[Rfam]
RNA sequence: GUCAGCACCCCGCUCUAAAGAGACGGGUCUUCGUGCCUCCCCUUUAGGUAGCUGACCAGCCUAAGCCUUAACUGGCUACGUUAUCUGAGUCAAGAUACCCACAAAUGCGUCGCUAGUUUGUGGCUCUAUCGUCAAUCAUUAAACAGUUUUACGAGGGGUAAGACAGUGUGGUUGGCCUAACAAGCUCAGAUAACAUUGGCGAAGCGAACAUUAC
Number, nucleotide and partner (000 for none) at each position: 001g056002u055003c054004a053005g052006c051007a049008c000009c000010c027011c025012g024013c000014u021015c020016u000017a000018a000019a000020g015021a014022g000023a000024c012025g011026g000027g010028u000029c000030u000031u000032c000033g000034u000035g000036c000037c000038u000039c000040c000041c000042c000043u000044u000045u000046a000047g000048g000049u007050a000051g006052c005053u004054g003055a002056c001057c000058a000059g200060c199061c198062u000063a196064a077065g076066c075067c074068u000069u000070a000071a000072c000073u000074g067075g066076c065077u064078a000079c000080g194081u193082u192083a191084u190085c189086u188087g187088a186089g185090u184091c000092a000093a000094g000095a129096u128097a000098c000099c123100c122101a121102c120103a119104a118105a117106u116107g000108c000109g000110u207111c206112g205113c204114u203115a000116g106117u105118u104119u103120g102121u101122g100123g099124c000125u000126c000127u000128a096129u095130c000131g176132u175133c174134a173135a172136u171137c170138a169139u168140u000141a000142a000143a167144c166145a000146g164147u163148u162149u161150u160151a159152c158153g000154a000155g000156g000157g000158g152159u151160a150161a149162g148163a147164c146165a000166g144167u143168g139169u138170g137171g136172u135173u134174g133175g132176c131177c000178u000179a000180a000181c000182a000183a000184g090185c089186u088187c087188a086189g085190a084191u083192a082193a081194c080195a000196u063197u000198g061199g060200c059201g000202a000203a114204g113205c112206g111207a110208a000209c000210a000211u000212u000213a000214c000
The record is a 214-nucleotide RNA sequence from Planktothrix tepida, which matches "HNH endonuclease-associated RNA and ORF (HEARO) RNA" in Rfam. The base pairs follow the family's consensus structure, which is taken from published work. The match comes from Rfam's covariance-model search (171 bits). Taxonomically the source falls in Planktothrix tepida (Bacteria, Bacillati, Cyanobacteriota, Oscillatoriales).